RNA sequence: ACCUUAUCAAGAGAAGGGGAGAGACUGGCUCAAUGAUCCUUCAGCAACCUUGCAAUAUUGCAAAAGGUGCUAAUUCCAGAAACAAGUCGAGUGAUUUUUCACCGGCUUUGUUUGAAGAUAAGGA
Numbered sequence: 001a002c003c004u005u006a007u008c009a010a011g012a013g014a015a016g017g018g019g020a021g022a023g024a025c026u027g028g029c030u031c032a033a034u035g036a037u038c039c040u041u042c043a044g045c046a047a048c049c050u051u052g053c054a055a056u057a058u059u060g061c062a063a064a065a066g067g068u069g070c071u072a073a074u075u076c077c078a079g080a081a082a083c084a085a086g087u088c089g090a091g092u093g094a095u096u097u098u099u100c101a102c103c104g105g106c107u108u109u110g111u112u113u114g115a116a117g118a119u120a121a122g123g124a
Stems, first nucleotide, its partner, number of pairs: 002123007013042005021031003025079004043071004048067002050063004075116001080113006
Shown here is a 124-nucleotide RNA from Calidifontibacillus erzurumensis, a member of the family "SAM riboswitch aptamer (S box leader)".
The base pairs follow the family's consensus structure, which is taken from published work.
The SAM riboswitch is found upstream of a number of genes which code for proteins involved in methionine or cysteine biosynthesis in Gram-positive bacteria.
The match comes from Rfam's covariance-model search (88 bits).
Lineage of the source: Bacteria > Bacillati > Caryophanales > Bacillaceae > Calidifontibacillus.